[Rfam]
RNA sequence: CCCUUAUGAAGAGCGGCGGAGGGACAGGCCCUGUGAAGCCCGGCAACCUGCAUUUAUGGAUGUAAGGUGCCAAAUCCUGCGGUAUGAACCGAGAGAUGAGGA
Numbered sequence: 001c002c003c004u005u006a007u008g009a010a011g012a013g014c015g016g017c018g019g020a021g022g023g024a025c026a027g028g029c030c031c032u033g034u035g036a037a038g039c040c041c042g043g044c045a046a047c048c049u050g051c052a053u054u055u056a057u058g059g060a061u062g063u064a065a066g067g068u069g070c071c072a073a074a075u076c077c078u079g080c081g082g083u084a085u086g087a088a089c090c091g092a093g094a095g096a097u098g099a100g101g102a
Stems, first nucleotide, its partner, number of pairs: 002101006013041001015040003021031003025079004042071004047067002049064004075094001080091004
This 102-nucleotide sequence from Youxingia wuxianensis belongs to the Rfam family "SAM riboswitch aptamer (S box leader)". A search with the family's covariance model found it, with a score of 82 bits. NCBI's taxonomy places the organism under Bacteria, Bacillati, Clostridia, Oscillospiraceae, Youxingia.